[Rfam]
RNA sequence: CGUGUGGUACUCUGUUGAUUGAAAUAAUUCAUCAAGCUGAGCAGCGACACGGCCCAAAAGAGGU
Dot-bracket structure: (((((.((..((.(((..................))).))...)).))))).............
The record is a 64-nucleotide RNA sequence from Psychromonas sp. Urea-02u-13, which matches "L31-Gammaproteobacteria ribosomal protein leader" in Rfam. For this family Rfam cites "Discovery of 20 novel ribosomal leader candidates in bacteria and archaea" (Eckert and Weinberg, BMC Microbiol, 2020). A search with the family's covariance model found it, with a score of 38 bits. Its Rfam clan is "Ribosomal Protein L31 Leader clan". Rfam classes the family as a cis-regulatory leader. The base pairs follow the family's consensus structure, which is taken from published work.